[Rfam]
RNA sequence: UUUAGCUUUGCGAGUUUCCCUUUGUCAUCCUAUGCCUGGGAGAUAUUCAGAGGCUGGGAUGGUAACGGGAAGCCCGCGGAGUUACAGA
Numbered sequence: 001u002u003u004a005g006c007u008u009u010g011c012g013a014g015u016u017u018c019c020c021u022u023u024g025u026c027a028u029c030c031u032a033u034g035c036c037u038g039g040g041a042g043a044u045a046u047u048c049a050g051a052g053g054c055u056g057g058g059a060u061g062g063u064a065a066c067g068g069g070a071a072g073c074c075c076g077c078g079g080a081g082u083u084a085c086a087g088a
Base pairs, nucleotide, nucleotide: 017070018069019068020067022065024063025062028059029058030057031056032055034054035053036052037051
This 88-nucleotide RNA from Salvator merianae belongs to the Rfam family "mir-204 microRNA precursor family". The literature on the family includes a 2005 paper in Genes Dev by Chen et al., "The developmental miRNA profiles of zebrafish as determined by small RNA cloning". Rfam links the family to the GO terms RISC complex and miRNA-mediated post-transcriptional gene silencing.